[Rfam]
RNA sequence: UGAUAGCGUUGAAGCGUGAGGUUGCUGCCGGGCCGAAAGGCACUGCAGGUUUUCCGUGGAGCGAAUGUCAAGAGGCCAUGCAAAUGGCCAAAGAACCUGACGGCAA
Numbered sequence: 001u002g003a004u005a006g007c008g009u010u011g012a013a014g015c016g017u018g019a020g021g022u023u024g025c026u027g028c029c030g031g032g033c034c035g036a037a038a039g040g041c042a043c044u045g046c047a048g049g050u051u052u053u054c055c056g057u058g059g060a061g062c063g064a065a066u067g068u069c070a071a072g073a074g075g076c077c078a079u080g081c082a083a084a085u086g087g088c089c090a091a092a093g094a095a096c097c098u099g100a101c102g103g104c105a106a
Stems, first nucleotide, its partner, number of pairs: 014057003018054004025048004066105004075088004